RNA sequence: CCCUUGGCUAUGAAGAUGCUUUGUUUUGCAUAGUUCACUCGGACGCAACGUGUGACGAUAAACUCAAACGUCUUUCGCUCCUAUCUGAGCCAAGUA
Numbered sequence: 001c002c003c004u005u006g007g008c009u010a011u012g013a014a015g016a017u018g019c020u021u022u023g024u025u026u027u028g029c030a031u032a033g034u035u036c037a038c039u040c041g042g043a044c045g046c047a048a049c050g051u052g053u054g055a056c057g058a059u060a061a062a063c064u065c066a067a068a069c070g071u072c073u074u075u076c077g078c079u080c081c082u083a084u085c086u087g088a089g090c091c092a093a094g095u096a
Stems, first nucleotide, its partner, number of pairs: 004093005
Overview:
The family of this 96-nucleotide sequence from Symbiodinium natans is "Small nucleolar RNA snR60/Z15/Z230/Z193/J17". By type it is a C/D-box small nucleolar RNA. Pairs were carried over by alignment from the consensus structure.